A member of the RNA family "isrA Hfq binding RNA" from Tenebrionibacter intestinalis, 129 nucleotides long. The family's RNA type in Rfam is small RNA. Taxonomically the source falls in Tenebrionibacter (Bacteria, Pseudomonadota, Gammaproteobacteria, Enterobacteriaceae). The family's consensus secondary structure was predicted with WAR. The literature on the family includes a 2008 paper in Nucleic Acids Res by Padalon-Brauch et al., "Small RNAs encoded within genetic islands of Salmonella typhimurium show host-induced expression and role in virulence".

[Rfam]
RNA sequence: ACGGCGACGGUAACCGGCGUGUCGGUUGUAAAUCCCGCCUCUUCCAGCCAGUCGCCCUUGAGGUGCAGGCUGGGCGAGCGGCUGUAAUACGUGGUCAUACCGGUAGCCCGCUUAAUAUGCUGGAUACUG
Dot-bracket structure: ....................(.((.(((......((............((((((((.....))))...))))))))).)).)........................(..............).......